[Rfam]
RNA sequence: UAAUUACUUCAGGGCAGGGUGAAAUUCCCGACCGGCGGUUAUAGUCCGCGAACCUAUUUGGUUGACUUGGUGAAAUUCCAAGACCGACAGUAAAGUCUGGAUGGAAGAAGUGUAUG
Numbered sequence: 001u002a003a004u005u006a007c008u009u010c011a012g013g014g015c016a017g018g019g020u021g022a023a024a025u026u027c028c029c030g031a032c033c034g035g036c037g038g039u040u041a042u043a044g045u046c047c048g049c050g051a052a053c054c055u056a057u058u059u060g061g062u063u064g065a066c067u068u069g070g071u072g073a074a075a076u077u078c079c080a081a082g083a084c085c086g087a088c089a090g091u092a093a094a095g096u097c098u099g100g101a102u103g104g105a106a107g108a109a110g111u112g113u114a115u116g
Base pairs, nucleotide, nucleotide: 005112006111007110008109009108010107017029018028019027031096032095033086034085035049036048037047038046044084045083052062053061054060066082067081068080069079070078088099089098090097
Record summary
A member of the RNA family "FMN riboswitch aptamer (RFN element)" from Alkalibaculum sporogenes, 116 nucleotides long.